Notes: A member of the RNA family "Clostridiales-1 RNA" from Roseburia sp. CAG:50, 169 nucleotides long. The family's consensus secondary structure is taken from published work. It is annotated as a small RNA.
RNA sequence: UGAUGCCAGGGGCAAAAGCCUGAAACCACGAUGUGCUUGCACAGGAGUGGUUUUAUGGCUUAAUGACCCGCCCCGAUAUGAGCAUAAAAGUGGAGCGUCAGCUUCACGAUAUGCGAAUAUUGGGUAGAAUUGUGGGAGUACGAAGUACGGAACAAUUCGUAUGGCAUCU
Dot-bracket structure: .((((((..((.(..((((((((((((((..((((....))))...))))))))).)))))...).))...((((((((..((((....(((((((....)))))))...))))..))))))))..(((((((....((((...))))...)))))))....)))))).
Numbered sequence: 001u002g003a004u005g006c007c008a009g010g011g012g013c014a015a016a017a018g019c020c021u022g023a024a025a026c027c028a029c030g031a032u033g034u035g036c037u038u039g040c041a042c043a044g045g046a047g048u049g050g051u052u053u054u055a056u057g058g059c060u061u062a063a064u065g066a067c068c069c070g071c072c073c074c075g076a077u078a079u080g081a082g083c084a085u086a087a088a089a090g091u092g093g094a095g096c097g098u099c100a101g102c103u104u105c106a107c108g109a110u111a112u113g114c115g116a117a118u119a120u121u122g123g124g125u126a127g128a129a130u131u132g133u134g135g136g137a138g139u140a141c142g143a144a145g146u147a148c149g150g151a152a153c154a155a156u157u158c159g160u161a162u163g164g165c166a167u168c169u
Stems, first nucleotide, its partner, number of pairs: 002168006010068002013065001016061005021055009032043004072124008082114004090107007127158007138148004